[Rfam]
RNA sequence: AGCUUUGCCAGUGGCAGUAUCGUAGCCAAAGAGGUUUAUCCAAGGCGCGAUUAUUGCCAAUUGAAAACUUUUCCCAAUACCCUACCGCGACGACUUCGGUAUCGUCGGCAUUGGCAAUUUUUGACAGUCUCUGUGGAGA
Numbered sequence: 001a002g003c004u005u006u007g008c009c010a011g012u013g014g015c016a017g018u019a020u021c022g023u024a025g026c027c028a029a030a031g032a033g034g035u036u037u038a039u040c041c042a043a044g045g046c047g048c049g050a051u052u053a054u055u056g057c058c059a060a061u062u063g064a065a066a067a068c069u070u071u072u073c074c075c076a077a078u079a080c081c082c083u084a085c086c087g088c089g090a091c092g093a094c095u096u097c098g099g100u101a102u103c104g105u106c107g108g109c110a111u112u113g114g115c116a117a118u119u120u121u122u123g124a125c126a127g128u129c130u131c132u133g134u135g136g137a138g139a
Base pairs, nucleotide, nucleotide: 019051020050021049022048023047025046026045027044033041034040085114086113087111089109091107092106093105094104096101128139129138130137131136
The family of this 139-nucleotide sequence from Cebus imitator is "U4 spliceosomal RNA". The source organism's lineage runs through Eukaryota, Metazoa, Craniata, Dipnotetrapodomorpha and Cebus. It is annotated as a spliceosomal small nuclear RNA.